[Rfam]
RNA: NiCo (Nickel/Cobalt) riboswitch aptamer
Organism: Sedimentibacter saalensis
RNA sequence: ACAGUACAAACUGAGCAGGCGAUGGACAUUGUUCAUGGGGCUGGGCCAAUGGCAGCAGGUUAUACCUGUGGGACGGGA
Numbered sequence: 001a002c003a004g005u006a007c008a009a010a011c012u013g014a015g016c017a018g019g020c021g022a023u024g025g026a027c028a029u030u031g032u033u034c035a036u037g038g039g040g041c042u043g044g045g046c047c048a049a050u051g052g053c054a055g056c057a058g059g060u061u062a063u064a065c066c067u068g069u070g071g072g073a074c075g076g077g078a
Stems, first nucleotide, its partner, number of pairs: 011076003016072001018042003022036006045053003055069006